[Rfam]
RNA sequence: CUGCAUACCAGUAGACCUUAUCUGGUUCUUCUAAUAGCCAGACGAGGGGGAUGGUGCAUGCUACAAAAACCUGGGGUUCCUGUAGGCUGUGGUCAGCCUCCCUGUGGCUGAUUGAACUGCAAUGCUCUCAACAUAC
Number, nucleotide and partner (000 for none) at each position: 001c000002u000003g061004c060005a059006u058007a000008c056009c000010a000011g000012u000013a000014g000015a000016c047017c046018u045019u044020a000021u042022c041023u040024g039025g000026u000027u000028c000029u000030u000031c000032u000033a000034a000035u000036a000037g000038c000039c024040a023041g022042a021043c000044g019045a018046g017047g016048g000049g000050g000051a000052u000053g000054g000055u000056g008057c000058a006059u005060g004061c003062u000063a000064c000065a000066a000067a000068a000069a000070c000071c000072u000073g128074g127075g126076g125077u000078u124079c000080c000081u121082g120083u119084a000085g000086g000087c000088u000089g000090u000091g000092g000093u111094c110095a109096g108097c107098c000099u000100c000101c000102c000103u000104g000105u000106g000107g097108c096109u095110g094111a093112u000113u000114g000115a000116a000117c000118u000119g083120c082121a081122a000123u000124g078125c076126u075127c074128u073129c000130a000131a000132c000133a000134u000135a000136c000